[Rfam]
Vertebrate telomerase RNA: a 482-nucleotide RNA sequence from Larus smithsonianus. Its family is annotated with telomerase activity, telomere maintenance via telomerase and telomerase catalytic core complex in the Gene Ontology. The family's consensus secondary structure is taken from published work. The match comes from Rfam's covariance-model search (156 bits). Rfam describes the family as follows. Telomerase is a ribonucleoprotein reverse transcriptase that synthesises telomeric DNA. Telomerase RNAs differ greatly in sequence and structure between vertebrates, ciliates and yeasts, but they share a 5' pseudoknot structure close to the template sequence. Clan: Telomerase clan.
RNA sequence: AUCGCGUGGCGGGUGGGGAGUCCCGGGUGUCACUAACCCUAAUGGCUGCUGCCGCGCUCCCCGCGCCCGCCCGCUGUUUUACUCGCUGACUUUCAGCGGGCGAGGGGAGCAGCUGGGAGGGGGUGGGGGGAGCAGGACGAGAAGGGGGUCUGCUAUCAAAAAACGUCAGCGAGGGGGCUCCUCACCCCGGCCCGCCCUGGGGUCCCCAUGUCCCCCCCUGCCCCGCAGCCGGGGGCCCGCCGCGGAGGCUCCCGCCGCCACACCGUCCUCAGGCCGCGGUCGGCCGGCUCCCGCCACUGCCGCCGCGAAGAGUUCGCCUCUGUCAGCCUCGGCGGCGGCCGGGAGAAGAGGGGCGCGCCCCCCGCCUCCUCCUCCGCGCCGGGGGGAGCCCCAGCAGAGCAAAACGGGAGCGGCGACCACCGACCCGACCCGCCGCGCUUCCCUCAGCCGUGGGGCGCGCGGCCGGCGCCGCUCCGACAAGC
Numbered sequence: 001a002u003c004g005c006g007u008g009g010c011g012g013g014u015g016g017g018g019a020g021u022c023c024c025g026g027g028u029g030u031c032a033c034u035a036a037c038c039c040u041a042a043u044g045g046c047u048g049c050u051g052c053c054g055c056g057c058u059c060c061c062c063g064c065g066c067c068c069g070c071c072c073g074c075u076g077u078u079u080u081a082c083u084c085g086c087u088g089a090c091u092u093u094c095a096g097c098g099g100g101c102g103a104g105g106g107g108a109g110c111a112g113c114u115g116g117g118a119g120g121g122g123g124u125g126g127g128g129g130g131a132g133c134a135g136g137a138c139g140a141g142a143a144g145g146g147g148g149u150c151u152g153c154u155a156u157c158a159a160a161a162a163a164c165g166u167c168a169g170c171g172a173g174g175g176g177g178c179u180c181c182u183c184a185c186c187c188c189g190g191c192c193c194g195c196c197c198u199g200g201g202g203u204c205c206c207c208a209u210g211u212c213c214c215c216c217c218c219u220g221c222c223c224c225g226c227a228g229c230c231g232g233g234g235g236c237c238c239g240c241c242g243c244g245g246a247g248g249c250u251c252c253c254g255c256c257g258c259c260a261c262a263c264c265g266u267c268c269u270c271a272g273g274c275c276g277c278g279g280u281c282g283g284c285c286g287g288c289u290c291c292c293g294c295c296a297c298u299g300c301c302g303c304c305g306c307g308a309a310g311a312g313u314u315c316g317c318c319u320c321u322g323u324c325a326g327c328c329u330c331g332g333c334g335g336c337g338g339c340c341g342g343g344a345g346a347a348g349a350g351g352g353g354c355g356c357g358c359c360c361c362c363c364g365c366c367u368c369c370u371c372c373u374c375c376g377c378g379c380c381g382g383g384g385g386g387a388g389c390c391c392c393a394g395c396a397g398a399g400c401a402a403a404a405c406g407g408g409a410g411c412g413g414c415g416a417c418c419a420c421c422g423a424c425c426c427g428a429c430c431c432g433c434c435g436c437g438c439u440u441c442c443c444u445c446a447g448c449c450g451u452g453g454g455g456c457g458c459g460c461g462g463c464c465g466g467c468g469c470c471g472c473u474c475c476g477a478c479a480a481g482c
Stems, first nucleotide, its partner, number of pairs: 005194002008191001010189001011187008020178005056110005068102009085170006091163003197394007234359003238355004250345001252343002256338001264332001275307005281302004286295003309321004408474008417465001433462005440455004